[Rfam]
RNA: Alphaproteobacteria transfer-messenger RNA
RNA sequence: ACCCUUUUCACGAGGCCGCAACCUCCUUAUAUUCAGUUUGUCGGGCCUUCGCUCGGCUAUGGCGAUAAACGUUCGAUGGAAUAAGCCUUUCGGACCCGGGGGCGGUACCCGGCGCCUCCACCGGAUGUCACGAUGAUCAUCGAAAUCGUGGCAUGCGGCGGGGGCGAAAUAGGAUCGACGAGGGUGUAAAGAUCGAAUUUUCGCUCGGAAUGGUACCGCCGUUAUCGGGCCUUAUAAAUAGUUGCCAACGACAACUAUGCGGAAGCUCGUCUCGCUGCGUAAGCAGCGCGAACGCUUCAAUUCAAGUCCUGGGGGUUCGCACUUCUAGGCGGGGCUCGGAGGCGCCUGGCAACAGAAGCCUCCACU
Numbered sequence: 001a002c003c004c005u006u007u008u009c010a011c012g013a014g015g016c017c018g019c020a021a022c023c024u025c026c027u028u029a030u031a032u033u034c035a036g037u038u039u040g041u042c043g044g045g046c047c048u049u050c051g052c053u054c055g056g057c058u059a060u061g062g063c064g065a066u067a068a069a070c071g072u073u074c075g076a077u078g079g080a081a082u083a084a085g086c087c088u089u090u091c092g093g094a095c096c097c098g099g100g101g102g103c104g105g106u107a108c109c110c111g112g113c114g115c116c117u118c119c120a121c122c123g124g125a126u127g128u129c130a131c132g133a134u135g136a137u138c139a140u141c142g143a144a145a146u147c148g149u150g151g152c153a154u155g156c157g158g159c160g161g162g163g164g165c166g167a168a169a170u171a172g173g174a175u176c177g178a179c180g181a182g183g184g185u186g187u188a189a190a191g192a193u194c195g196a197a198u199u200u201u202c203g204c205u206c207g208g209a210a211u212g213g214u215a216c217c218g219c220c221g222u223u224a225u226c227g228g229g230c231c232u233u234a235u236a237a238a239u240a241g242u243u244g245c246c247a248a249c250g251a252c253a254a255c256u257a258u259g260c261g262g263a264a265g266c267u268c269g270u271c272u273c274g275c276u277g278c279g280u281a282a283g284c285a286g287c288g289c290g291a292a293c294g295c296u297u298c299a300a301u302u303c304a305a306g307u308c309c310u311g312g313g314g315g316u317u318c319g320c321a322c323u324u325c326u327a328g329g330c331g332g333g334g335c336u337c338g339g340a341g342g343c344g345c346c347u348g349g350c351a352a353c354a355g356a357a358g359c360c361u362c363c364a365c366u
Base pairs, nucleotide, nucleotide: 040057041056042055043054044053045052046051061205062204063203064202065201071198072197073196074195075194076193077192086184087183088182090181091180092179096112097111098110099109100108113166114165115164116163117162118161119160206221207220208219212231213230216228217227332347333346334345335344338363339362340361341360342359343358